[Rfam]
RNA: Plastid-psbA-4 3UTR RNA
Organism: Ludwigia octovalvis
RNA sequence: AAUAAAGGAGCAAUAAUCAAUAUUCUUAAUAUAACAAGAAAUUGGUUAUUGCUCCUUUAU
Number, nucleotide and partner (000 for none) at each position: 001a000002a000003u000004a058005a057006a056007g055008g054009a053010g052011c051012a050013a049014u048015a047016a000017u000018c000019a043020a042021u000022a000023u040024u039025c038026u037027u036028a000029a000030u000031a000032u000033a000034a000035c000036a027037a026038g025039a024040a023041a000042u020043u019044g000045g000046u000047u015048a014049u013050u012051g011052c010053u009054c008055c007056u006057u005058u004059a000060u000